[Rfam]
RNA sequence: CCUUUGGAGUGUUAGACCACUUGAGUAGCAAUUAUGCGAAAAAGAACAUGAUGAAGAAGGAA
Numbered sequence: 001c002c003u004u005u006g007g008a009g010u011g012u013u014a015g016a017c018c019a020c021u022u023g024a025g026u027a028g029c030a031a032u033u034a035u036g037c038g039a040a041a042a043a044g045a046a047c048a049u050g051a052u053g054a055a056g057a058a059g060g061a062a
Stems, first nucleotide, its partner, number of pairs: 001060005009049005020044003028037003
RAGATH-18 RNA: a 62-nucleotide RNA. The base pairs follow the family's consensus structure, which is taken from published work. It is annotated as a small RNA.